[Rfam]
RNA sequence: UCGGAUGGAACGCCGAAUCCUGCCACCAUCCGCAAUUCCCACUAUUCACCGCCGGCAGGAGCGGGGGACCCAAGUAUUCGCCGGUCCGGAUUCCGGAACGGCUAGGGGUGAAGUCGCACAUGUGCGGCCGGGCAUCUCCAGCCCGAACCCGACAGCUCACCCCGCAGGCUCCGGAGAGGAAUC
Numbered sequence: 001u002c003g004g005a006u007g008g009a010a011c012g013c014c015g016a017a018u019c020c021u022g023c024c025a026c027c028a029u030c031c032g033c034a035a036u037u038c039c040c041a042c043u044a045u046u047c048a049c050c051g052c053c054g055g056c057a058g059g060a061g062c063g064g065g066g067g068a069c070c071c072a073a074g075u076a077u078u079c080g081c082c083g084g085u086c087c088g089g090a091u092u093c094c095g096g097a098a099c100g101g102c103u104a105g106g107g108g109u110g111a112a113g114u115c116g117c118a119c120a121u122g123u124g125c126g127g128c129c130g131g132g133c134a135u136c137u138c139c140a141g142c143c144c145g146a147a148c149c150c151g152a153c154a155g156c157u158c159a160c161c162c163c164g165c166a167g168g169c170u171c172c173g174g175a176g177a178g179g180a181a182u183c
Stems, first nucleotide, its partner, number of pairs: 012169003018060007061165006071105001106150003114127004130144004
The family of this 183-nucleotide RNA sequence from Streptomyces sp. MS191 is "c-di-AMP riboswitch aptamer (ydaO/yuaA leader)". The source organism's lineage runs through Bacteria, Actinomycetota, Actinomycetes, Kitasatosporales and Streptomyces.